Rfam assigns this 64-nucleotide RNA sequence from Orycteropus afer to the family "Selenocysteine insertion sequence 1".
The incorporation of selenocysteine into a protein sequence is directed by an in-frame UGA codon (usually a stop codon) within the coding region of the mRNA. Selenoprotein mRNAs contain a conserved secondary structure in the 3' UTR that is required for the distinction of UGA stop from UGA selenocysteine. The selenocysteine insertion sequence (SECIS) is around 60 nt in length and adopts a hairpin structure which is sufficiently well-defined and conserved to act as a computational screen for selenoprotein genes.
[Rfam]
RNA sequence: CAGUCUUAAUGAUGUUGAUGAAGUAAAGCUUUCAAGACCUUCAUUUGCUGAUGGUGCAUGACUC
Numbered sequence: 001c002a003g004u005c006u007u008a009a010u011g012a013u014g015u016u017g018a019u020g021a022a023g024u025a026a027a028g029c030u031u032u033c034a035a036g037a038c039c040u041u042c043a044u045u046u047g048c049u050g051a052u053g054g055u056g057c058a059u060g061a062c063u064c
Base pairs, nucleotide, nucleotide: 002063003062004061005060014048015047017045018044019043020042021041022040023039029036030035
Dot-bracket structure: .((((........((.(((((((.....((....))..))))))).))...........)))).